[Rfam]
RNA sequence: GUGAAGUUGAUCACUACAAACAUAUACCCCUUUGUUUGACCGUGAAAGAUUUCUCCCAUCCCCUUUGUUCGUAUUAAUAGAAAAAGACCUUGUAGCACCGGUGCUACAGGGUCUUU
Numbered sequence: 001g002u003g004a005a006g007u008u009g010a011u012c013a014c015u016a017c018a019a020a021c022a023u024a025u026a027c028c029c030c031u032u033u034g035u036u037u038g039a040c041c042g043u044g045a046a047a048g049a050u051u052u053c054u055c056c057c058a059u060c061c062c063c064u065u066u067g068u069u070c071g072u073a074u075u076a077a078u079a080g081a082a083a084a085a086g087a088c089c090u091u092g093u094a095g096c097a098c099c100g101g102u103g104c105u106a107c108a109g110g111g112u113c114u115u116u
Stems, first nucleotide, its partner, number of pairs: 003053006011045004017038006069082001072079001086113011

Rfam assigns this 116-nucleotide RNA from Neobacillus massiliamazoniensis to the family "RNA Staph. aureus E (RoxS)". Rfam classes the family as a small RNA. The source organism's lineage runs through Bacteria, Bacillati, Bacilli, Caryophanales and Neobacillus. It was shown to be regulated by the presence of nitric oxide (NO). In Bacillus subtilis it controls expression of genes with functions related to oxidative stress and oxidation-reduction reactions and it was renamed RoxS (for related to oxidative stress).